[Rfam]
The family of this 187-nucleotide sequence from Segatella buccae is "Bacteroidales-1 6S-Bacteroidales RNA suggested". Rfam classes the family as a small RNA. Bacteroidales-1 was first reported in a comparative genomics-based approach of genome and metagenome sequences from Weinberg et al. 2010 In a high-resolution transcriptome map study of Bacteroides thetaiotaomicron, Ryan et al. 2020 report this sRNA as 6S RNA homologue of Bacteroides, in the study they obtain evidence of small product RNAs (pRNAs) related to 6S function.

Nucleotides: 187
Base pairs, nucleotide, nucleotide: 054131057129059128060127061126062125063124067120068119074114075113076112077111084093085092086091099108100107101106
Number, partner (000 for none) and nucleotide at each position: 001000g002000g003000u004000c005000g006000u007000g008000u009000c010000g011000a012000u013000u014000c015000g016000a017000u018000c019000g020000g021000g022000a023000u024000a025000c026000u027000c028000a029000u030000c031000a032000a033000a034000u035000a036000a037000c038000a039000u040000u041000u042000a043000c044000g045000c046000c047000g048000a049000g050000a051000u052000g053000a054131c055000a056000u057129c058000u059128u060127u061126u062125g063124c064000c065000u066000a067120u068119g069000g070000c071000g072000g073000g074114c075113c076112a077111u078000a079000u080000a081000a082000a083000u084093c085092g086091c087000a088000u089000c090000u091086g092085c093084g094000a095000c096000u097000a098000a099108g100107c101106u102000g103000c104000a105000a106101a107100g108099c109000c110000g111077g112076u113075g114074g115000a116000u117000u118000a119068c120067a121000a122000a123000a124063g125062c126061g127060a128059a129057g130000a131054g132000c133000u134000c135000u136000c137000a138000a139000a140000u141000c142000a143000u144000a145000a146000u147000g148000a149000u150000u151000a152000c153000u154000c155000g156000g157000a158000g159000u160000u161000u162000c163000a164000u165000c166000a167000c168000a169000u170000c171000a172000u173000c174000g175000u176000g177000c178000g179000a180000c181000c182000c183000u184000u185000u186000u187000u
For this family Rfam cites "A high-resolution transcriptome map identifies small RNA regulation of metabolism in the gut microbe Bacteroides thetaiotaomicron" (Ryan et al., Nat Commun, 2020).